A member of the RNA family "TPP riboswitch aptamer (THI element)" from Halalkalibacter suaedae, 109 nucleotides long. The organism belongs to Halalkalibacter, within Bacteria. Rfam links the family to the GO term thiamine pyrophosphate binding. The family's consensus secondary structure is taken from published work.

RNA sequence: AAGAACUACUAGGGGAGCCGGUUAGUCCGGCUGAGAAAAAAGAAGCACUUUUUGACCCUUGGGACCUGAUCUGGAUCAUGCCAGCGUGGGGAAGUAGAAGCAGCAUUUG
Numbered sequence: 001a002a003g004a005a006c007u008a009c010u011a012g013g014g015g016a017g018c019c020g021g022u023u024a025g026u027c028c029g030g031c032u033g034a035g036a037a038a039a040a041a042g043a044a045g046c047a048c049u050u051u052u053u054g055a056c057c058c059u060u061g062g063g064a065c066c067u068g069a070u071c072u073g074g075a076u077c078a079u080g081c082c083a084g085c086g087u088g089g090g091g092a093a094g095u096a097g098a099a100g101c102a103g104c105a106u107u108u109g
Stems, first nucleotide, its partner, number of pairs: 006097005011059004016053001017031005038052005065090004071084004